[Rfam]
RNA: Z30 small nucleolar RNA
Organism: Python bivittatus
Nucleotides: 097
Base pairs, nucleotide, nucleotide: 003095004094038057039056040055041054
Number, partner (000 for none) and nucleotide at each position: 001000a002000g003095g004094c005000a006000a007000u008000g009000a010000u011000g012000a013000g014000u015000g016000a017000a018000g019000u020000a021000u022000a023000g024000u025000c026000u027000g028000a029000a030000c031000u032000g033000g034000u035000a036000u037000u038057g039056u040055c041054a042000g043000a044000a045000c046000u047000u048000u049000g050000g051000u052000u053000u054041u055040g056039a057038c058000u059000c060000u061000g062000a063000c064000c065000a066000g067000g068000g069000c070000a071000u072000g073000a074000u075000c076000a077000c078000g079000u080000a081000a082000u083000c084000u085000u086000c087000u088000c089000u090000c091000u092000g093000a094004g095003c096000a097000g